[Rfam]
Nucleotides: 422
Base pairs, nucleotide, nucleotide: 024055025053026052027051028050029049035042036041065072066071076103077102078101079100086094087093106320107319108318109317112150113149114148115147118144119143121141122140124138125137126136127135155261156260157258158257159256162254163253164252165251167245168244169243170242171241172239173238176234177233178232179231180230181229185201187200188199189198190197204208211221212220270291271290272289273288274287275286276285297314298313299312300311301310354361355360377388378387379386380385
Number, partner (000 for none) and nucleotide at each position: 001000u002000g003000a004000c005000c006000u007000c008000a009000g010000a011000u012000c013000a014000g015000a016000u017000a018000a019000g020000g021000a022000u023000a024055c025053c026052c027051g028050c029049u030000g031000a032000a033000c034000u035042u036041a037000a038000g039000c040000a041036u042035a043000u044000c045000a046000a047000u048000a049029a050028g051027c052026g053025g054000a055024g056000g057000a058000a059000a060000a061000g062000a063000a064000a065072c066071c067000a068000a069000c070000a071066g072065g073000g074000a075000u076103u077102g078101c079100c080000u081000c082000a083000g084000u085000a086094a087093c088000g089000g090000c091000g092000a093087g094086u095000g096000a097000a098000g099000c100079g101078g102077c103076a104000a105000c106320a107319g108318c109317u110000c111000a112150a113149a114148u115147u116000u117000g118144a119143a120000a121141u122140c123000u124138g125137g126136g127135g128000c129000c130000u131000u132000c133000g134000g135127c136126c137125u138124c139000c140122g141121a142000g143119u144118u145000g146000u147115a148114a149113u150112u151000u152000g153000a154000a155261g156260a157258g158257g159256a160000u161000g162254u163253u164252u165251c166000g167245g168244c169243g170242g171241c172239a173238g174000c175000u176234u177233u178232g179231g180230c181229c182000c183000a184000a185201g186000u187200u188199c189198c190197u191000u192000g193000g194000a195000a196000c197190a198189g199188g200187a201185c202000g203000u204208c205000a206000u207000g208204g209000a210000g211221g212220g213000u214000g215000a216000g217000a218000a219000u220212c221211c222000c223000g224000u225000g226000u227000c228000u229181g230180g231179c232178u233177g234176a235000u236000a237000g238173c239172u240000u241171g242170c243169u244168g245167c246000u247000a248000u249000g250000u251165g252164a253163a254162a255000c256159u257158c258157c259000u260156u261155c262000g263000a264000a265000g266000a267000g268000u269000c270291g271290a272289g273288u274287u275286g276285u277000u278000u279000g280000g281000g282000a283000a284000u285276g286275c287274a288273g289272c290271u291270c292000a293000a294000a295000a296000u297314g298313g299312g300311u301310g302000g303000u304000a305000a306000a307000u308000u309000u310301c311300a312299u313298c314297u315000a316000a317109a318108g319107c320106u321000a322000a323000a324000u325000a326000u327000u328000g329000g330000c331000g332000g333000g334000a335000g336000a337000c338000c339000g340000a341000u342000a343000g344000c345000g346000c347000a348000c349000a350000a351000g352000u353000a354361g355360a356000g357000u358000g359000a360355u361354c362000g363000a364000a365000a366000g367000a368000u369000g370000a371000a372000a373000a374000g375000c376000a377388c378387u379386u380385u381000g382000a383000a384000a385380a386379g387378a388377g389000a390000g391000u392000u393000a394000a395000a396000c397000a398000g399000u400000a401000c402000g403000u404000g405000a406000a407000a408000u409000u410000g411000u412000u413000g414000a415000a416000a417000g418000g419000g420000a421000a422000g

The family of this 422-nucleotide part of an RNA from Drechslerella stenobrocha is "Eukaryotic large subunit ribosomal RNA". NCBI's taxonomy places the organism under Eukaryota, Fungi, Ascomycota, saccharomyceta, Drechslerella stenobrocha. Pairs were carried over by alignment from the consensus structure, which is taken from published work.